[Rfam]
RNA: Small nucleolar RNA SNORD53/SNORD92
Organism: Sorex araneus
RNA sequence: GUGCAGUGAUGAUGUCCAUAUGGUUUCGCUUCUGGCUGAGUCUCAGAGAUGACACUUUUCUCUUGGCUGUCUGAGCAU
Numbered sequence: 001g002u003g004c005a006g007u008g009a010u011g012a013u014g015u016c017c018a019u020a021u022g023g024u025u026u027c028g029c030u031u032c033u034g035g036c037u038g039a040g041u042c043u044c045a046g047a048g049a050u051g052a053c054a055c056u057u058u059u060c061u062c063u064u065g066g067c068u069g070u071c072u073g074a075g076c077a078u
Stems, first nucleotide, its partner, number of pairs: 001078004